ALIL pseudoknot: a 117-nucleotide sequence from Maritimibacter harenae.
RNA sequence: GGCGUAUUUUGCUCAGGCGGAGCUCGACCGCCGACCGAAGUCAUGAUCGCCUUCAUUGAGGAGAACCGCGCGGAGAUUGGGGUCGAGCCGAUUUGCAGGGAACUGCCGAUCGCCCCG
Numbered sequence: 001g002g003c004g005u006a007u008u009u010u011g012c013u014c015a016g017g018c019g020g021a022g023c024u025c026g027a028c029c030g031c032c033g034a035c036c037g038a039a040g041u042c043a044u045g046a047u048c049g050c051c052u053u054c055a056u057u058g059a060g061g062a063g064a065a066c067c068g069c070g071c072g073g074a075g076a077u078u079g080g081g082g083u084c085g086a087g088c089c090g091a092u093u094u095g096c097a098g099g100g101a102a103c104u105g106c107c108g109a110u111c112g113c114c115c116c117g
Stems, first nucleotide, its partner, number of pairs: 016032005078117005089112002092109002095106004

Overview
The organism belongs to Maritimibacter, within Bacteria. By type it is a cis-regulatory element. Rfam links the family to the GO term positive regulation of translational frameshifting. A search with the family's covariance model found it, with a score of 113 bits.